Rfam assigns this 100-nucleotide RNA sequence from Musa troglodytarum to the family "mir-156 microRNA precursor family". A search with the family's covariance model found it, with a score of 66 bits. The literature on the family includes a 2001 paper in Cell by Ambros, "microRNAs: tiny regulators with great potential". Rfam links the family to the GO terms RISC complex and miRNA-mediated post-transcriptional gene silencing. Taxonomically the source falls in Musa (Eukaryota, Embryophyta, Mesangiospermae, commelinids). The family has 10 seed sequences and 1,401 matches in Rfam 15.1. From the family's description: This family represents the plant microRNA (miRNA) precursor mir-156.
RNA sequence: UUGACAGAAGAGAGUGAGCACCCAUGGUGUUUUCUUGCAUGGAAAGGGAGAUACCGAGUCCAUGCACCAAGCUAUGCGUGCUCGCUCCUCUAUCUGUCAG
Numbered sequence: 001u002u003g004a005c006a007g008a009a010g011a012g013a014g015u016g017a018g019c020a021c022c023c024a025u026g027g028u029g030u031u032u033u034c035u036u037g038c039a040u041g042g043a044a045a046g047g048g049a050g051a052u053a054c055c056g057a058g059u060c061c062a063u064g065c066a067c068c069a070a071g072c073u074a075u076g077c078g079u080g081c082u083c084g085c086u087c088c089u090c091u092a093u094c095u096g097u098c099a100g
Base pairs, nucleotide, nucleotide: 001100002099003098004097005096006095007094008093010090011089012088013086014085015084016083017082018081019080020079021078023076024075025074026073027072028071